[Rfam]
About this RNA:
A member of the RNA family "Small nucleolar RNA snoR53Y" from Mikania micrantha, 76 nucleotides long. The source organism's lineage runs through Eukaryota, Streptophyta, Asteroideae, Eupatorieae and Mikania.
RNA sequence: GUUCCCAAUGAUGUACAAAGUAGACCAUGCUAAUUCUGAAAUUGAUGAAACUUUUUUAGUCAUUUCUGAGGGGACA
Dot-bracket structure: (((((.................................................................))))).
By type it is a C/D-box small nucleolar RNA. Clan: snoR53 clan. The literature on the family includes a 2001 paper in RNA by Brown et al., "Multiple snoRNA gene clusters from Arabidopsis".